[Rfam]
A member of the RNA family "Guanidine-II riboswitch aptamer (mini-ykkC)" from Flavimobilis soli, 51 nucleotides long.
RNA sequence: CCGCGGGGACGACCUCGCGACGAUCAUCUACACGUCGGGGACGACCGGCCG
Numbered sequence: 001c002c003g004c005g006g007g008g009a010c011g012a013c014c015u016c017g018c019g020a021c022g023a024u025c026a027u028c029u030a031c032a033c034g035u036c037g038g039g040g041a042c043g044a045c046c047g048g049c050c051g
Stems, first nucleotide, its partner, number of pairs: 002019007036051003039046002

It scores 34 bits against the family's covariance model. NCBI's taxonomy places the organism under Bacteria, Bacillati, Actinomycetes, Micrococcales, Flavimobilis.